[Rfam]
RNA sequence: UAGGCUUGAGAGUGCUAGGCUGUUUCUCUAAACCAGCCAAGCUCUGGAGAGCCAUGUUGAAUCCCUGGGAAGACAGCAUAGGGUGUGCAAAUUUAAAAAUGCAAAGUUGGACUGAAAAUAUCUCUAGUCUUCCAAGCAACCUGCUUCAGGGUUCCAAACUUACCUUCAUUUGGUGAGAAAAGAAGCUGCCCUAUUUUUUUUCUUUCUGCUACCACUGGAACCAGUCAUUUCCAAAAACCACCACCAUG
Dot-bracket structure: .............................................(((((................((..(((.((.((((((((.((...(((.....(((....(((((..((............)).))))))))....................((((((.......)))))).)))...))))))))))..))..)))))......................)))))................

Voltage-gated potassium-channel Kv1.4 IRES: a 248-nucleotide RNA from Hipposideros armiger.
Rfam classes the family as an internal ribosome entry site.
From the family's description: This family represents the Kv1.4 voltage-gated potassium-channel internal ribosome entry site (IRES).
Gene Ontology term of the family: ribosome binding.